[Rfam]
This 56-nucleotide RNA from Microcaecilia unicolor belongs to the Rfam family "Plastid-ccsA-ndhD-1 3UTR RNA". A search with the family's covariance model found it, with a score of 48 bits. The family's consensus secondary structure was predicted with LocARNA. The family's RNA type in Rfam is cis-regulatory element. Plastid-ccsA-ndhD-1 is a non-coding RNA (ncRNA) recognised in plastids. The family has 488 seed sequences and 1,322 matches in Rfam 15.1. The organism belongs to Microcaecilia, within Eukaryota. On this family, see Richter et al., Plant Commun 2023: "Retrograde signaling in plants: A critical review focusing on the GUN pathway and beyond".

RNA sequence: AAAUUUCAAAGAACCACUUUAUUCAAUGAGUCAUUGAAUAAAGUGGUUCUUUGAAA
Numbered sequence: 001a002a003a004u005u006u007c008a009a010a011g012a013a014c015c016a017c018u019u020u021a022u023u024c025a026a027u028g029a030g031u032c033a034u035u036g037a038a039u040a041a042a043g044u045g046g047u048u049c050u051u052u053g054a055a056a
Stems, first nucleotide, its partner, number of pairs: 007053019